[Rfam]
RNA: Selenocysteine insertion sequence 1
RNA sequence: UUUGUGUUAAUGAAGACUACACAGAAAACCUUUCUGAGGAUUUGUGUAGAUCCGAUAUUUAGCAAA
Numbered sequence: 001u002u003u004g005u006g007u008u009a010a011u012g013a014a015g016a017c018u019a020c021a022c023a024g025a026a027a028a029c030c031u032u033u034c035u036g037a038g039g040a041u042u043u044g045u046g047u048a049g050a051u052c053c054g055a056u057a058u059u060u061a062g063c064a065a066a
Stems, first nucleotide, its partner, number of pairs: 001066004015052002017049008030039003